[Rfam]
RNA sequence: GGAUGACUGAUUUCUUCUGGUGUUCAGAGUCCACAGUAGAAUCUAGCACCAUUUGAAAUCAGUUAUAA
Dot-bracket structure: ..(((.((((((((...(((((...(((.............)))..)))))...))))))))).))..
RNA: mir-29 microRNA precursor family
Organism: Polypterus senegalus